nhaA-I RNA: a 59-nucleotide RNA sequence. From the family's description: Acidobacteria, Alphaproteobacteria, Betaproteobacteria and Gammaproteobacteria, Verrucomicrobia, cand. division NC10. Pairs were carried over by alignment from the consensus structure, which is taken from published work.
RNA sequence: GGGUGUCACCGCAAAACGCGGGAGGGCAGGUUUAAUUCAGCGCAGGUCGGGCCGCCGCG
Numbered sequence: 001g002g003g004u005g006u007c008a009c010c011g012c013a014a015a016a017c018g019c020g021g022g023a024g025g026g027c028a029g030g031u032u033u034a035a036u037u038c039a040g041c042g043c044a045g046g047u048c049g050g051g052c053c054g055c056c057g058c059g
Stems, first nucleotide, its partner, number of pairs: 005027003009021002041059003045056003